Rfam assigns this 73-nucleotide RNA sequence to the family "RAGATH-18 RNA". It is one of the family's seed sequences. The family's consensus secondary structure is taken from published work.
[Rfam]
RNA sequence: ACUAUGGAGUGUACUUGAACUUGUGAGUAGAUAUGAUCUCAGUCAGUCGAAAGCAUACACAAUAAAAUAGUAA
Numbered sequence: 001a002c003u004a005u006g007g008a009g010u011g012u013a014c015u016u017g018a019a020c021u022u023g024u025g026a027g028u029a030g031a032u033a034u035g036a037u038c039u040c041a042g043u044c045a046g047u048c049g050a051a052a053g054c055a056u057a058c059a060c061a062a063u064a065a066a067a068u069a070g071u072a073a
Base pairs, nucleotide, nucleotide: 001071002070003069004068005067009060010059011058012057013056022055023054024053030048031047032046034045035044